[Rfam]
RNA: Small nucleolar RNA SNORD2
RNA sequence: GUGUGACAUGAUGGCCUACCAUCUUUCGGGACUGACCUGCAAUGGAGAGAGUGUCUCUGCUGAUCACAA
Numbered sequence: 001g002u003g004u005g006a007c008a009u010g011a012u013g014g015c016c017u018a019c020c021a022u023c024u025u026u027c028g029g030g031a032c033u034g035a036c037c038u039g040c041a042a043u044g045g046a047g048a049g050a051g052u053g054u055c056u057c058u059g060c061u062g063a064u065c066a067c068a069a
Stems, first nucleotide, its partner, number of pairs: 002068005